[Rfam]
RNA sequence: GGAGGCAGGCCCUCCGGUGGCGACUGGCAAGAGUAGCCACCAAACAACCCUAAGCUGCAUAGGUCAAAAGCCUGUGUGGUGAGCGUUAGGGAAAAGGCCGCCGGUAAACCGGGGUCAUG
Numbered sequence: 001g002g003a004g005g006c007a008g009g010c011c012c013u014c015c016g017g018u019g020g021c022g023a024c025u026g027g028c029a030a031g032a033g034u035a036g037c038c039a040c041c042a043a044a045c046a047a048c049c050c051u052a053a054g055c056u057g058c059a060u061a062g063g064u065c066a067a068a069a070g071c072c073u074g075u076g077u078g079g080u081g082a083g084c085g086u087u088a089g090g091g092a093a094a095a096g097g098c099c100g101c102c103g104g105u106a107a108a109c110c111g112g113g114g115u116c117a118u119g
Base pairs, nucleotide, nucleotide: 001015002014003013004012005011016041017040018039019038020037021036023034024033025032045119046118048091049090050089051088052087053086054080055079057077058076059075061073062072063071064070096116097115098114099113101111
This 119-nucleotide RNA sequence from Niastella populi belongs to the Rfam family "Group II catalytic intron D1-D4-2".
The match comes from Rfam's covariance-model search (99 bits).
Pairs were carried over by alignment from the consensus structure.
About the family: Group II introns are found in rRNA, tRNA and mRNA of organelles in fungi, plants and protists, and also in mRNA in bacteria.
On this family, see Bonen and Vogel, Trends Genet 2001: "The ins and outs of group II introns".
Taxonomically the source falls in Niastella (Bacteria, Pseudomonadati, Chitinophagia, Chitinophagaceae).